[Rfam]
RNA sequence: CUGUAAAAUAACGAUUCAGGGUGAUGAAUGAAUCCUCACUGCUAAUGUGAGAUGAAUUUUUGAGUGGGCAAAGGUUGCCCCUAAGGUGACCCGCUUACUUUGUGGGAUGUCUGGGAGUUGUGAUAUGCCCG
Numbered sequence: 001c002u003g004u005a006a007a008a009u010a011a012c013g014a015u016u017c018a019g020g021g022u023g024a025u026g027a028a029u030g031a032a033u034c035c036u037c038a039c040u041g042c043u044a045a046u047g048u049g050a051g052a053u054g055a056a057u058u059u060u061u062g063a064g065u066g067g068g069c070a071a072a073g074g075u076u077g078c079c080c081c082u083a084a085g086g087u088g089a090c091c092c093g094c095u096u097a098c099u100u101u102g103u104g105g106g107a108u109g110u111c112u113g114g115g116a117g118u119u120g121u122g123a124u125a126u127g128c129c130c131g
Base pairs, nucleotide, nucleotide: 013034014033015032016031017030018029035051036050037049038048039047065131066130067129068128069127072126074124075123076122077121078120081115082114084112085111086110087109088108090106091105092104093103094102
Shown here is a 131-nucleotide RNA sequence from Carlito syrichta, a member of the family "U12 minor spliceosomal RNA".
The family's RNA type in Rfam is spliceosomal small nuclear RNA.
The family is grouped with related families in Rfam's "U2 clan".
Its family is annotated with mRNA branch site recognition, pre-mRNA branch point binding and U12 snRNP in the Gene Ontology.